The family of this 95-nucleotide sequence is "mir-395 microRNA precursor family". From the family's description: mir-395 was identified in both Arabidopsis thaliana and Oryza sativa computationally and was later experimentally verified. mir-395 is thought to target mRNAs coding for ATP sulphurylases. The mature sequence is excised from the 3' arm of the hairpin. On this family, see Jones-Rhoades and Bartel, Mol Cell 2004: "Computational Identification of Plant MicroRNAs and Their Targets, Including a Stress-Induced miRNA".

[Rfam]
RNA sequence: AUGUUUUCUAGAGUUCCUCUGAGCACUUCAUUGGAGAUACAAUUUUUUAUAAAAUAGUUUUCUACUGAAGUGUUUGGGGGAACUCCCGGGCUGAU
Numbered sequence: 001a002u003g004u005u006u007u008c009u010a011g012a013g014u015u016c017c018u019c020u021g022a023g024c025a026c027u028u029c030a031u032u033g034g035a036g037a038u039a040c041a042a043u044u045u046u047u048u049a050u051a052a053a054a055u056a057g058u059u060u061u062c063u064a065c066u067g068a069a070g071u072g073u074u075u076g077g078g079g080g081a082a083c084u085c086c087c088g089g090g091c092u093g094a095u
Base pairs, nucleotide, nucleotide: 006090007089008088011085012084013083014082015081016080017079018078019077020076022075023074024072025071026070027069028068029067030066032064033063034062035061